This 33-nucleotide RNA sequence belongs to the Rfam family "Iron response element I". A reference for the family is Walden et al. (2006), "Structure of dual function iron regulatory protein 1 complexed with ferritin IRE-RNA", Science. Rfam links the family to the GO term response to iron ion. By type it is a cis-regulatory element.

RNA sequence: UCGCCUUCUGCACCAGUGUGUGUAAAGGCCUGA
Numbered sequence: 001u002c003g004c005c006u007u008c009u010g011c012a013c014c015a016g017u018g019u020g021u022g023u024a025a026a027g028g029c030c031u032g033a
Stems, first nucleotide, its partner, number of pairs: 001033002003029003007025001009024005014018001